[Rfam]
RNA sequence: UUUCCCGAGGAGCGUUGCAGCGUCCCCGCCCACAAGACCGGCGGGCGUGAGGCUCGGGAGACCGGGCCAGCGGCAGCCGCUUGCAGCGCCCGCCCGUGCAACGACGCUCAUCCACC
Numbered sequence: 001u002u003u004c005c006c007g008a009g010g011a012g013c014g015u016u017g018c019a020g021c022g023u024c025c026c027c028g029c030c031c032a033c034a035a036g037a038c039c040g041g042c043g044g045g046c047g048u049g050a051g052g053c054u055c056g057g058g059a060g061a062c063c064g065g066g067c068c069a070g071c072g073g074c075a076g077c078c079g080c081u082u083g084c085a086g087c088g089c090c091c092g093c094c095c096g097u098g099c100a101a102c103g104a105c106g107c108u109c110a111u112c113c114a115c116c
Base pairs, nucleotide, nucleotide: 002060003059004058005057006056007055008054021047022046023045024044025043
This 116-nucleotide RNA from Oryzisolibacter propanilivorax belongs to the Rfam family "SAH (S-adenosyl-L-homocysteine) riboswitch aptamer". The base pairs follow the family's consensus structure, which is taken from published work. The match comes from Rfam's covariance-model search (46 bits).